This 112-nucleotide RNA sequence from Fontibacillus panacisegetis belongs to the Rfam family "TPP riboswitch aptamer (THI element)". Rfam links the family to the GO term thiamine pyrophosphate binding. The match comes from Rfam's covariance-model search (66 bits).
RNA sequence: CUUCAUAUUCAGGGGUGCUGGAAUUGGCCGGCUGAGAUUGUAUCCCUCAAAGAUACUGACCCUUUUACCUGAUCUGGAUAAUGCCAGCGUAGGAAGAGCAUCCAUAUGGACU
Number, nucleotide and partner (000 for none) at each position: 001c000002u000003u000004c000005a000006u100007a000008u098009u097010c096011a063012g062013g061014g060015g000016u000017g032018c031019u030020g029021g028022a000023a000024u000025u000026g000027g000028c021029c020030g019031g018032c017033u000034g000035a000036g000037a000038u000039u000040g056041u055042a054043u053044c000045c000046c000047u000048c000049a000050a000051a000052g000053a043054u042055a041056c040057u000058g000059a000060c014061c013062c012063u011064u000065u000066u000067a000068c093069c092070u091071g090072a000073u000074c087075u086076g085077g084078a000079u000080a000081a000082u000083g000084c077085c076086a075087g074088c000089g000090u071091a070092g069093g068094a000095a000096g010097a009098g008099c000100a006101u000102c000103c000104a000105u000106a000107u000108g000109g000110a000111c000112u000